[Rfam]
RNA sequence: UGGUCUUGUUGAACAUUCAACGCUGUCGGUGAGUUUUUGACAUUGAAAAACCAUCGACCGUUGAUUGUGCCCUGAGGCCA
Numbered sequence: 001u002g003g004u005c006u007u008g009u010u011g012a013a014c015a016u017u018c019a020a021c022g023c024u025g026u027c028g029g030u031g032a033g034u035u036u037u038u039g040a041c042a043u044u045g046a047a048a049a050a051c052c053a054u055c056g057a058c059c060g061u062u063g064a065u066u067g068u069g070c071c072c073u074g075a076g077g078c079c080a
Base pairs, nucleotide, nucleotide: 001080002079003078004077005076006075007074008073014067015066017064018063019062020061021060022059025058026057027056028055029054030053031052033051034050035049036048
The family of this 80-nucleotide RNA sequence from Onychostoma macrolepis is "mir-181 microRNA precursor family". It scores 74 bits against the family's covariance model. Its family is annotated with RISC complex and miRNA-mediated post-transcriptional gene silencing in the Gene Ontology. For this family Rfam cites "microRNAs: tiny regulators with great potential" (Ambros, Cell, 2001).